[Rfam]
RNA sequence: GCCGAGCCUAGUAACGUGGGCUUGUAACCGAAGUAGGGGCAUCAAGGUGAUUGGACGUUCUGCUGGCUCAGGCGGCUGGACUCUAUGUUGCUAAGUUCUGGCCCGCCCAUUCCAAGCGGGGAGUUGGGCCCUGUGGCCCAGGCGAAGGCCUGGACCGAAUGGCCUUUAGAGCGGAGGGCACCGCGUCAGGCUGGCUUCACAGAGCAGCGACUACCUCCCGCUCUCUGCAGUGGAAGGAUAACGGGCCGGUGCAACUGGAUUCCAAUAAAGCCACUUGGGCCAGUCCUAAUUGGACAUUCACCUUU
Numbered sequence: 001g002c003c004g005a006g007c008c009u010a011g012u013a014a015c016g017u018g019g020g021c022u023u024g025u026a027a028c029c030g031a032a033g034u035a036g037g038g039g040c041a042u043c044a045a046g047g048u049g050a051u052u053g054g055a056c057g058u059u060c061u062g063c064u065g066g067c068u069c070a071g072g073c074g075g076c077u078g079g080a081c082u083c084u085a086u087g088u089u090g091c092u093a094a095g096u097u098c099u100g101g102c103c104c105g106c107c108c109a110u111u112c113c114a115a116g117c118g119g120g121g122a123g124u125u126g127g128g129c130c131c132u133g134u135g136g137c138c139c140a141g142g143c144g145a146a147g148g149c150c151u152g153g154a155c156c157g158a159a160u161g162g163c164c165u166u167u168a169g170a171g172c173g174g175a176g177g178g179c180a181c182c183g184c185g186u187c188a189g190g191c192u193g194g195c196u197u198c199a200c201a202g203a204g205c206a207g208c209g210a211c212u213a214c215c216u217c218c219c220g221c222u223c224u225c226u227g228c229a230g231u232g233g234a235a236g237g238a239u240a241a242c243g244g245g246c247c248g249g250u251g252c253a254a255c256u257g258g259a260u261u262c263c264a265a266u267a268a269a270g271c272c273a274c275u276u277g278g279g280c281c282a283g284u285c286c287u288a289a290u291u292g293g294a295c296a297u298u299c300a301c302c303u304u305u
Base pairs, nucleotide, nucleotide: 001040002039003038004023005022006021007020008019009018010017028037029036044304045303046302047301048300049299050298052296053295056292057291058289059288062284063283064282065281066280068278069277070276071275072274074272075271076270077269078263079262080261082259083258084257085256087255088254089253090252092251093250098249099248100247101246102245103244104243105242107237108236110235111234112233113232114231116228117227118226119225120224121223122222123221124220126165127164128163129162130161132159134157135156136155138153139152140151141150142149143148166171173218174217175216176215177214184209185208186207191202192201193200
RNA: Plant signal recognition particle RNA
Organism: Phtheirospermum japonicum